[Rfam]
Nucleotides: 080
Base pairs, nucleotide, nucleotide: 001080002079003078005076006075007074011070012069013068014067015066016065017064018063020060023059024058025057026056028054029053030052
Number, partner (000 for none) and nucleotide at each position: 001080g002079c003078u004000u005076u006075g007074c008000u009000u010000c011070a012069g013068c014067a015066g016065c017064a018063c019000g020060a021000u022000c023059a024058a025057u026056a027000c028054u029053g030052g031000a032000g033000g034000c035000u036000u037000c038000g039000g040000c041000g042000a043000g044000u045000c046000u047000u048000a049000a050000c051000u052030c053029c054028a055000a056026u057025a058024u059023u060020u061000a062000c063018g064017u065016g066015c067014u068013g069012c070011u071000a072000c073000a074007g075006c076005a077000a078003g079002g080001c